[Rfam]
RNA: U4 spliceosomal RNA
Organism: Neogobius melanostomus
RNA sequence: UUGUUGGCGCAGUGGCAGUAUCGUAGCCUAUGAGUGUAAUCCGAGGCGCGAUAUUGAAAUAGUUGAAAACUUUACCCACCCCGCCUUGACGACUUGAAAUAUAGUCGGCUAUGCAAUUUGUCAUCCUCAGGAAGA
Numbered sequence: 001u002u003g004u005u006g007g008c009g010c011a012g013u014g015g016c017a018g019u020a021u022c023g024u025a026g027c028c029u030a031u032g033a034g035u036g037u038a039a040u041c042c043g044a045g046g047c048g049c050g051a052u053a054u055u056g057a058a059a060u061a062g063u064u065g066a067a068a069a070c071u072u073u074a075c076c077c078a079c080c081c082c083g084c085c086u087u088g089a090c091g092a093c094u095u096g097a098a099a100u101a102u103a104g105u106c107g108g109c110u111a112u113g114c115a116a117u118u119u120g121u122c123a124u125c126c127u128c129a130g131g132a133a134g135a
Base pairs, nucleotide, nucleotide: 020052021051022050023049024048026047027046028045034042036040083114084113086111088109090107091106092105093104094103127135128134